This 62-nucleotide RNA belongs to the Rfam family "Gag/pol translational readthrough site".

[Rfam]
RNA sequence: UAGGAGAGUCAGGGCCAGGACCCCCCCCCUGAGCCCAGGAUAACCUUAAAAAUAGGGGGGCA
Numbered sequence: 001u002a003g004g005a006g007a008g009u010c011a012g013g014g015c016c017a018g019g020a021c022c023c024c025c026c027c028c029c030u031g032a033g034c035c036c037a038g039g040a041u042a043a044c045c046u047u048a049a050a051a052a053u054a055g056g057g058g059g060g061c062a
Stems, first nucleotide, its partner, number of pairs: 008041003012036004016031004022060006
Pairs were carried over by alignment from the consensus structure, which is taken from published work. The family's RNA type in Rfam is cis-regulatory element.